[Rfam]
Nucleotides: 106
Base pairs, nucleotide, nucleotide: 001103003101004100008099010095011094012093013092014091015090016089017088018087020085021084022083023082025080026079027078029076031051032050033049034048035047036046037045038044039043055070056069057068058067
Number, partner (000 for none) and nucleotide at each position: 001103u002000c003101a004100a005000a006000a007000g008099u009000u010095g011094u012093u013092g014091g015090g016089u017088c018087a019000c020085g021084c022083u023082u024000a025080g026079c027078a028000a029076c030000c031051g032050u033049a034048c035047u036046c037045a038044a039043u040000g041000c042000u043039a044038u045037u046036g047035g048034g049033u050032a051031u052000g053000g054000c055070u056069g057068g058067a059000c060000a061000a062000u063000a064000g065000u066000g067058u068057u069056u070055g071000g072000u073000c074000u075000g076029g077000c078027u079026g080025u081000c082023a083022a084021g085020c086000a087018u088017g089016a090015c091014c092013u093012a094011a095010u096000a097000g098000u099008a100004u101003u102000g103001g104000g105000u106000c
About this RNA: The record is a 106-nucleotide RNA sequence from Populus alba, which matches "MIR474 microRNA precursor family" in Rfam. Taxonomically the source falls in Populus (Eukaryota, Magnoliopsida, fabids, Malpighiales). Gene Ontology terms of the family: RISC complex and miRNA-mediated post-transcriptional gene silencing. Rfam 15.1 lists 69 matches to the family in 15 species.